Rfam assigns this 83-nucleotide sequence from Phoenicopterus ruber to the family "Small nucleolar RNA SNORD72". Its family is annotated with nucleolus and RNA processing in the Gene Ontology. Taxonomically the source falls in Phoenicopterus ruber (Eukaryota, Bilateria, Archelosauria, Phoenicopteriformes). Rfam describes the family as follows. snoRNA HBII-240 belongs to the CD family of snoRNAs. It is the human orthologue of the mouse MBII-240 and is predicted to guide 2'O-ribose methylation of the large 28S rRNA at residue U4590. Rfam 15.1 lists 726 matches to the family in 499 species.
RNA sequence: CACUUGUUAAUAAGGUGUUUCUUAUUAAAAAUGUCUGAACAUAGGAACUCCAUAGUGAUUUCAGUGCAUUACUGAGAUAAGCU
Numbered sequence: 001c002a003c004u005u006g007u008u009a010a011u012a013a014g015g016u017g018u019u020u021c022u023u024a025u026u027a028a029a030a031a032u033g034u035c036u037g038a039a040c041a042u043a044g045g046a047a048c049u050c051c052a053u054a055g056u057g058a059u060u061u062c063a064g065u066g067c068a069u070u071a072c073u074g075a076g077a078u079a080a081g082c083u
Stems, first nucleotide, its partner, number of pairs: 003081006